A member of the RNA family "Small nucleolar RNA Z107/R87" from Malus domestica, 106 nucleotides long. The source organism's lineage runs through Eukaryota, Viridiplantae, Streptophyta, Spermatophyta and Malus. It scores 78 bits against the family's covariance model. It is annotated as a C/D-box small nucleolar RNA.

RNA sequence: GAUUGGCGGUGAUGACCCAAUGAAAUUCAAGCUCAACAGACCGGAUUGUAGGCUUCUCUUUUCAGAGAAUGUUUGCGUGUCGACAACCCCGCUGAACUGAGCCUUC
Numbered sequence: 001g002a003u004u005g006g007c008g009g010u011g012a013u014g015a016c017c018c019a020a021u022g023a024a025a026u027u028c029a030a031g032c033u034c035a036a037c038a039g040a041c042c043g044g045a046u047u048g049u050a051g052g053c054u055u056c057u058c059u060u061u062u063c064a065g066a067g068a069a070u071g072u073u074u075g076c077g078u079g080u081c082g083a084c085a086a087c088c089c090c091g092c093u094g095a096a097c098u099g100a101g102c103c104u105u106c
Stems, first nucleotide, its partner, number of pairs: 001106002005103003